This 179-nucleotide RNA sequence from Paenibacillus selenitireducens belongs to the Rfam family "glmS glucosamine-6-phosphate activated ribozyme aptamer". It scores 77 bits against the family's covariance model. It is annotated as a riboswitch.
RNA sequence: UGGAUCCAUUAAGCGCCAGGGCUUAACCGCACAGAACGGAGAAUAUUGUGCAGGGUAAGUCGACGAGGUGAAGGUGUUCGAAACAUUCGGCGGGGACCUUCCGGUAUUGCAUCAUACCGUAUGGCUGUAACGGAAAACGAGUUGGCAACGGCUCGGACAACGUUAGGGCGAGAUGCUUC
Numbered sequence: 001u002g003g004a005u006c007c008a009u010u011a012a013g014c015g016c017c018a019g020g021g022c023u024u025a026a027c028c029g030c031a032c033a034g035a036a037c038g039g040a041g042a043a044u045a046u047u048g049u050g051c052a053g054g055g056u057a058a059g060u061c062g063a064c065g066a067g068g069u070g071a072a073g074g075u076g077u078u079c080g081a082a083a084c085a086u087u088c089g090g091c092g093g094g095g096a097c098c099u100u101c102c103g104g105u106a107u108u109g110c111a112u113c114a115u116a117c118c119g120u121a122u123g124g125c126u127g128u129a130a131c132g133g134a135a136a137a138c139g140a141g142u143u144g145g146c147a148a149c150g151g152c153u154c155g156g157a158c159a160a161c162g163u164u165a166g167g168g169c170g171a172g173a174u175g176c177u178u179c
Stems, first nucleotide, its partner, number of pairs: 020061006027054002070101005078090004102119006124169003128165003138155007